[Rfam]
Rfam assigns this 145-nucleotide RNA sequence from Gossypium lobatum to the family "MIR7502 microRNA precursor family".
RNA sequence: AGUUAAAAAUUUCAUCUAUUUCUACUAUUAAAAAUUAGUUUUUGUACGUUAACAUAAGGUACAUGUAGCGCACCACAUUUUACUAUCUGGUUAUUCUGUCAGCCAUUGCAGUUUUUAAAAGUAAAAAUUAAUGAAAUUUUUAACA
Number, nucleotide and partner (000 for none) at each position: 001a000002g144003u143004u142005a141006a140007a139008a138009a137010u136011u135012u134013c133014a132015u131016c000017u000018a128019u127020u126021u125022c000023u123024a122025c121026u120027a000028u118029u117030a116031a115032a114033a113034a000035u000036u000037a000038g000039u000040u000041u000042u000043u000044g000045u000046a000047c000048g000049u000050u000051a000052a000053c000054a000055u000056a000057a000058g000059g000060u000061a000062c000063a000064u000065g000066u000067a000068g000069c000070g000071c000072a000073c000074c000075a000076c000077a000078u000079u000080u000081u000082a000083c000084u000085a000086u000087c000088u000089g000090g000091u000092u000093a000094u000095u000096c000097u000098g000099u000100c000101a000102g000103c000104c000105a000106u000107u000108g000109c000110a000111g000112u000113u033114u032115u031116u030117a029118a028119a000120a026121g025122u024123a023124a000125a021126a020127a019128u018129u000130a000131a015132u014133g013134a012135a011136a010137u009138u008139u007140u006141u005142a004143a003144c002145a000
Record summary: It scores 86 bits against the family's covariance model.